The record is a 107-nucleotide RNA from Alteromonas confluentis, which matches "t44 RNA" in Rfam.
RNA sequence: AAUAAACUUUUUAAAUAACACACAUAUACCGACACUGACAUCGGGGUGUCUGCUAAGUCUUAAUGGCUUAAAUGCGGAUCGAUGGAAGGGGUAUAUGGAGGCCUAAC
Dot-bracket structure: ......................((((((((....((..(((((....(((((......................))))))))))..)).))))))))..........
From the family's description: This family consists of a number of bacterial RNA genes of between 135 and 170 bases in length. A search with the family's covariance model found it, with a score of 75 bits. Lineage of the source: Bacteria > Pseudomonadati > Gammaproteobacteria > Alteromonadales > Alteromonas.